[Rfam]
RNA sequence: CGGUGGGCCACCCCUCCCCACCGAGGGGCUGCUAUCUGAGAGGGUAGAAUAC
Numbered sequence: 001c002g003g004u005g006g007g008c009c010a011c012c013c014c015u016c017c018c019c020a021c022c023g024a025g026g027g028g029c030u031g032c033u034a035u036c037u038g039a040g041a042g043g044g045u046a047g048a049a050u051a052c
Stems, first nucleotide, its partner, number of pairs: 011028006032047006
Dot-bracket structure: ..........((((((......))))))...((((((....)))))).....
Description
Rfam assigns this 52-nucleotide RNA sequence from Roseibium suaedae to the family "serC leader". This family is a putative regulatory RNA structure that is found upstream of the serC-serA operon in some alpha-proteobacteria. The final stem of the structure overlaps the ribosome binding site of the serC reading frame. A reference for the family is Corbino et al. (2005), "Evidence for a second class of S-adenosylmethionine riboswitches and other regulatory RNA motifs in alpha-proteobacteria", Genome Biol. The pairing is the family consensus, mapped onto this sequence. A search with the family's covariance model found it, with a score of 68 bits.